[Rfam]
RNA sequence: ACAAAUUCCCGGUAACCAUUCCGGCUUCAUUCUCUUGAAGAAUGACAUAUUCUCAGCGUUUUAGCUGAAGGUCAGAUGAUACGUCAUCUGGCCUCUUU
Number, nucleotide and partner (000 for none) at each position: 001a000002c000003a000004a000005a000006u000007u000008c000009c024010c023011g022012g021013u000014a000015a000016c000017c000018a000019u000020u000021c012022c011023g010024g009025c000026u000027u045028c044029a043030u042031u041032c040033u039034c000035u000036u000037g000038a000039a033040g032041a031042a030043u029044g028045a027046c000047a000048u000049a000050u000051u000052c000053u068054c067055a066056g065057c064058g000059u000060u000061u000062u000063a000064g057065c056066u055067g054068a053069a000070g093071g092072u091073c090074a089075g088076a087077u086078g085079a084080u000081a000082c000083g000084u079085c078086a077087u076088c075089u074090g073091g072092c071093c070094u000095c000096u000097u000098u000
This 98-nucleotide sequence from Staphylococcus aureus belongs to the Rfam family "Staphylococcus sRNA sau-63". Lineage of the source: Bacteria > Bacillota > Staphylococcaceae > Staphylococcus > Staphylococcus aureus. Pairs were carried over by alignment from the consensus structure, which was predicted with mfold. The literature on the family includes a 2010 paper in J Mol Med (Berl) by Abu-Qatouseh et al., "Identification of differentially expressed small non-protein-coding RNAs in Staphylococcus aureus displaying both the normal and the small-colony variant phenotype". The family's RNA type in Rfam is small RNA. It is one of the family's seed sequences.